A member of the RNA family "Small nucleolar RNA SNORA72" from Cavia porcellus, 132 nucleotides long. On this family, see Ganot et al., Genes Dev 1997: "The family of box ACA small nucleolar RNAs is defined by an evolutionarily conserved secondary structure and ubiquitous sequence elements essential for RNA accumulation". Rfam's curators write: U72 is a member of the H/ACA class of snoRNAs. The snoRNA gene is located in intron 4 of the ribosomal L30 protein gene in human, mouse and chicken. The family's consensus secondary structure was predicted with PFOLD. Rfam classes the family as an H/ACA-box small nucleolar RNA.
[Rfam]
RNA sequence: CUGCGAAUAUUCUUGCUCUUCUGAUUGUAUCAUAAUCAGGGCAGGCUAAACAUUUGCUACAGUAAGACCAUGCAUGUAUUCCCAGACCUCAAUCUUUCCCUAGGUCUGGUUUGAUAAAUGCUAGUGAUAAGC
Numbered sequence: 001c002u003g004c005g006a007a008u009a010u011u012c013u014u015g016c017u018c019u020u021c022u023g024a025u026u027g028u029a030u031c032a033u034a035a036u037c038a039g040g041g042c043a044g045g046c047u048a049a050a051c052a053u054u055u056g057c058u059a060c061a062g063u064a065a066g067a068c069c070a071u072g073c074a075u076g077u078a079u080u081c082c083c084a085g086a087c088c089u090c091a092a093u094c095u096u097u098c099c100c101u102a103g104g105u106c107u108g109g110u111u112u113g114a115u116a117a118a119u120g121c122u123a124g125u126g127a128u129a130a131g132c
Stems, first nucleotide, its partner, number of pairs: 003057003016044002019041008067125002070122001072121002082109008